This 74-nucleotide RNA from Drosophila yakuba belongs to the Rfam family "mir-310 microRNA precursor family". The family is grouped with related families in Rfam's "mir-92 microRNA precursor clan". Gene Ontology terms of the family: cellular response to nitric oxide, compound eye morphogenesis and dorsal closure.
[Rfam]
RNA sequence: ACAUUUGCAGGACGGGUCGUGUGGCAGUGUAUUGAUUUCUUAGCUAUAUUGCACACUUCCCGCCCUUUAAAUGU
Numbered sequence: 001a002c003a004u005u006u007g008c009a010g011g012a013c014g015g016g017u018c019g020u021g022u023g024g025c026a027g028u029g030u031a032u033u034g035a036u037u038u039c040u041u042a043g044c045u046a047u048a049u050u051g052c053a054c055a056c057u058u059c060c061c062g063c064c065c066u067u068u069a070a071a072u073g074u
Stems, first nucleotide, its partner, number of pairs: 001074007010065002013062002016059001020055002023052001025051007
Rfam's curators put it in the seed alignment.